[Rfam]
RNA: Bacterial large subunit ribosomal RNA, nucleotides 1258 to 1631
RNA sequence: GUUAAAGCGGGUGAAAAGCCCGCUCGCCGUAAGCGCAAGGUUUCCUACGCAACGUUCAUCGGCGUAGGGUGAGUCGGCCCCUAAGGCGAGGCAGAGAUGCGUAGCUGAUGGGAAACAGGUCAAUAUUCCUGUACCGAUUGCAAGUGCGAUGUGGGGACGAAUCUUAAUAGGUGAUCCGGGUGUUGGAUGUCCCGGUUUAGACAGAAGUAGGCGUGUGUCAGGCAAAUCCGGCACACAUAUACCGAGGCUGUCGAUCGAGCGAGCUUGCUUGCGAAGUCACUGAACGGGGUUCCAGGAAAAGCCACUAAGCUUCAGCUUGCAACGACCGUACCGCAAACCGACACUGGUGCGCGAGAUGAGUAUUCUAAGGCGCU
Numbered sequence: 001g002u003u004a005a006a007g008c009g010g011g012u013g014a015a016a017a018g019c020c021c022g023c024u025c026g027c028c029g030u031a032a033g034c035g036c037a038a039g040g041u042u043u044c045c046u047a048c049g050c051a052a053c054g055u056u057c058a059u060c061g062g063c064g065u066a067g068g069g070u071g072a073g074u075c076g077g078c079c080c081c082u083a084a085g086g087c088g089a090g091g092c093a094g095a096g097a098u099g100c101g102u103a104g105c106u107g108a109u110g111g112g113a114a115a116c117a118g119g120u121c122a123a124u125a126u127u128c129c130u131g132u133a134c135c136g137a138u139u140g141c142a143a144g145u146g147c148g149a150u151g152u153g154g155g156g157a158c159g160a161a162u163c164u165u166a167a168u169a170g171g172u173g174a175u176c177c178g179g180g181u182g183u184u185g186g187a188u189g190u191c192c193c194g195g196u197u198u199a200g201a202c203a204g205a206a207g208u209a210g211g212c213g214u215g216u217g218u219c220a221g222g223c224a225a226a227u228c229c230g231g232c233a234c235a236c237a238u239a240u241a242c243c244g245a246g247g248c249u250g251u252c253g254a255u256c257g258a259g260c261g262a263g264c265u266u267g268c269u270u271g272c273g274a275a276g277u278c279a280c281u282g283a284a285c286g287g288g289g290u291u292c293c294a295g296g297a298a299a300a301g302c303c304a305c306u307a308a309g310c311u312u313c314a315g316c317u318u319g320c321a322a323c324g325a326c327c328g329u330a331c332c333g334c335a336a337a338c339c340g341a342c343a344c345u346g347g348u349g350c351g352c353g354a355g356a357u358g359a360g361u362a363u364u365c366u367a368a369g370g371c372g373c374u
Base pairs, nucleotide, nucleotide: 006024007023008022009021010020011019025372026371027370028369033352034351035350036349039332040331044068045067046066047065048064049063053061054060075328076327077326080111081110085106086105087104089102091100092099093098115132116131117130118129119128135324136323138322139321140320141319142318143317144316145315146310147309151305152304153303154302159292160291161290162289170281171280172279173278174277176195177194178193179192180191198254202250203249204248210242213236214235215234216233217232218231219230221229222228259272260271261270262269263268338347339346354366355365356364